[Rfam]
RNA: tRNA
RNA sequence: GCGGAAGUGGCGGAACUGGCAGACGCGCAGGUCUCAGGAACCUGUCGAGGCAACUCGGUGGGGGUUCAAAUCCCCCCUUCCGCA
Number, nucleotide and partner (000 for none) at each position: 001g083002c082003g081004g080005a079006a078007g077008u000009g000010g026011c025012g024013g000014a000015a000016c000017u000018g000019g000020c000021a000022g000023a000024c012025g011026c010027g000028c044029a043030g042031g041032u040033c000034u000035c000036a000037g000038g000039a000040a032041c031042c030043u029044g028045u000046c000047g000048a000049g000050g000051c000052a000053a000054c000055u000056c000057g000058g000059u000060g076061g075062g074063g073064g072065u000066u000067c000068a000069a000070a000071u000072c064073c063074c062075c061076c060077c007078u006079u005080c004081c003082g002083c001084a000